[Rfam]
RNA sequence: AUAGGCACGCAGGGGAGUCCCGCCCAAGGGACUGAGAGGCGUCAAGGUGCGGGGCAACCCGGACCGGCGGCGCGACCCUUUGAACCUGACCCAGUUGAUACUGGCGUAGGAAGCUAGGAGCAUGGUACG
Numbered sequence: 001a002u003a004g005g006c007a008c009g010c011a012g013g014g015g016a017g018u019c020c021c022g023c024c025c026a027a028g029g030g031a032c033u034g035a036g037a038g039g040c041g042u043c044a045a046g047g048u049g050c051g052g053g054g055c056a057a058c059c060c061g062g063a064c065c066g067g068c069g070g071c072g073c074g075a076c077c078c079u080u081u082g083a084a085c086c087u088g089a090c091c092c093a094g095u096u097g098a099u100a101c102u103g104g105c106g107u108a109g110g111a112a113g114c115u116a117g118g119a120g121c122a123u124g125g126u127a128c129g
Base pairs, nucleotide, nucleotide: 006117009114010113011079012078013077014076017032018031019030020029021028039073040072041071042070043069085110086109087108088107091104092103093102094101
A member of the RNA family "TPP riboswitch aptamer (THI element)" from Rhodobacterales bacterium Y4I, 129 nucleotides long.
A search with the family's covariance model found it, with a score of 61 bits.
The family's consensus secondary structure is taken from published work.
Taxonomically the source falls in Rhodobacterales (Bacteria, Pseudomonadati, Pseudomonadota, Alphaproteobacteria).
Rfam links the family to the GO term thiamine pyrophosphate binding.